[Rfam]
The record is a 101-nucleotide sequence from Jeotgalibacillus alimentarius, which matches "Purine riboswitch aptamer" in Rfam. The organism belongs to Jeotgalibacillus, within Bacteria.
RNA sequence: AAUCAAUUGAAUGAACGGCCUCAUAUAAAAUCGGGAAUAUGGCCCGAAAGUUUCUACCCUGCACCGUAAAUGACAGGACUAUGAGGGAAAGAGUCAGGCAC
Number, nucleotide and partner (000 for none) at each position: 001a000002a000003u000004c000005a000006a000007u000008u000009g000010a000011a000012u000013g000014a000015a000016c000017g000018g000019c086020c085021u084022c083023a082024u081025a080026u000027a000028a000029a000030a000031u047032c046033g045034g044035g043036a000037a000038u000039a000040u000041g000042g000043c035044c034045c033046g032047a031048a000049a000050g000051u000052u000053u000054c000055u000056a000057c000058c077059c076060u075061g074062c072063a071064c000065c000066g000067u000068a000069a000070a000071u063072g062073a000074c061075a060076g059077g058078a000079c000080u025081a024082u023083g022084a021085g020086g019087g000088a000089a000090a000091g000092a000093g000094u000095c000096a000097g000098g000099c000100a000101c000